[Rfam]
RNA sequence: GGGGACCUUCGGGGCCCUGUAACCUGGGUCGCUUGCGACCCACCUAGCUGACGGAAGACAGAGA
Numbered sequence: 001g002g003g004g005a006c007c008u009u010c011g012g013g014g015c016c017c018u019g020u021a022a023c024c025u026g027g028g029u030c031g032c033u034u035g036c037g038a039c040c041c042a043c044c045u046a047g048c049u050g051a052c053g054g055a056a057g058a059c060a061g062a063g064a
Stems, first nucleotide, its partner, number of pairs: 001018004006014003027040005
RNA: L2-Alphaproteobacteria ribosomal protein leader